Overview:
Rfam assigns this 151-nucleotide sequence from Virgibacillus salinus to the family "FMN riboswitch aptamer (RFN element)". A reference for the family is Vitreschak et al. (2002), "Regulation of riboflavin biosynthesis and transport genes in bacteria by transcriptional and translational attenuation", Nucleic Acids Res.
RNA sequence: UUCCAUCUUCGGGGCAGGGUGCAAUUCCCGACCGACGGUAAGGAACAAGCAUUAAAUGUUCUAAGUCCGUGACCCGUGCGGCAUUUGCCAAGCGGUGGACCUGGUGUGAGUCCGGGACCGACAGUUACAGUCUGGAUGGGAGAAGAUGUCG
Numbered sequence: 001u002u003c004c005a006u007c008u009u010c011g012g013g014g015c016a017g018g019g020u021g022c023a024a025u026u027c028c029c030g031a032c033c034g035a036c037g038g039u040a041a042g043g044a045a046c047a048a049g050c051a052u053u054a055a056a057u058g059u060u061c062u063a064a065g066u067c068c069g070u071g072a073c074c075c076g077u078g079c080g081g082c083a084u085u086u087g088c089c090a091a092g093c094g095g096u097g098g099a100c101c102u103g104g105u106g107u108g109a110g111u112c113c114g115g116g117a118c119c120g121a122c123a124g125u126u127a128c129a130g131u132c133u134g135g136a137u138g139g140g141a142g143a144a145g146a147u148g149u150c151g
Stems, first nucleotide, its partner, number of pairs: 004148007017029003031131002033120002035070004065118002074095002100116005122134003